Shown here is a 201-nucleotide sequence from Burkholderia glumae, a member of the family "Proteobacterial sRNA psRNA2". For this family Rfam cites "Computational prediction and transcriptional analysis of sRNAs in Nitrosomonas europaea" (Gvakharia et al., FEMS Microbiol Lett, 2010). It is annotated as a small RNA. The base pairs follow the family's consensus structure. It scores 143 bits against the family's covariance model.
RNA sequence: GGGUUACUCCUUGGCGCUUGCGCGCUGUUUUGAUGAAGAUUCGCACCUCUAUCAAAACGGGUAACCCCGCCUCUUGGCAAGGCCUUACUGUCAGAUCAAGUCUGAACUUCUACAUUUGAGCUUGUACUGCGACUAUUGGUCCGAAGAACGUCGCCGCGACGAUAGCGAGAUCGGUGAUUUUGAUUGUCCAGUCCCAUGCCA
Numbered sequence: 001g002g003g004u005u006a007c008u009c010c011u012u013g014g015c016g017c018u019u020g021c022g023c024g025c026u027g028u029u030u031u032g033a034u035g036a037a038g039a040u041u042c043g044c045a046c047c048u049c050u051a052u053c054a055a056a057a058c059g060g061g062u063a064a065c066c067c068c069g070c071c072u073c074u075u076g077g078c079a080a081g082g083c084c085u086u087a088c089u090g091u092c093a094g095a096u097c098a099a100g101u102c103u104g105a106a107c108u109u110c111u112a113c114a115u116u117u118g119a120g121c122u123u124g125u126a127c128u129g130c131g132a133c134u135a136u137u138g139g140u141c142c143g144a145a146g147a148a149c150g151u152c153g154c155c156g157c158g159a160c161g162a163u164a165g166c167g168a169g170a171u172c173g174g175u176g177a178u179u180u181u182g183a184u185u186g187u188c189c190a191g192u193c194c195c196a197u198g199c200c201a
Stems, first nucleotide, its partner, number of pairs: 001067007009060002014025004027058009037048002075201003081194002084191002090107002092104005109183002112180001114179001